[Rfam]
RNA sequence: CCCGGCAAUGAAUUACCGGGCUAUUCUCAGUCGUCCCUCCGGGACU
Dot-bracket structure: (((((.((....)).)))))............(((((...))))).
RNA: Acido-Lenti-1 RNA